[Rfam]
RNA sequence: ACCGCUGAGCCAUCUCUCCAGCCCCCAAAGUUUUUUUUUAAAAUGGUGCUUUGGGGCUGGAGAGAUGGCUCAGCAGU
Numbered sequence: 001a002c003c004g005c006u007g008a009g010c011c012a013u014c015u016c017u018c019c020a021g022c023c024c025c026c027a028a029a030g031u032u033u034u035u036u037u038u039u040a041a042a043a044u045g046g047u048g049c050u051u052u053g054g055g056g057c058u059g060g061a062g063a064g065a066u067g068g069c070u071c072a073g074c075a076g077u
Stems, first nucleotide, its partner, number of pairs: 002076001004074021
mir-3473 microRNA precursor family: a 77-nucleotide RNA sequence from Nannospalax galili. The base pairs follow the family's consensus structure, which was predicted with RNAalifold.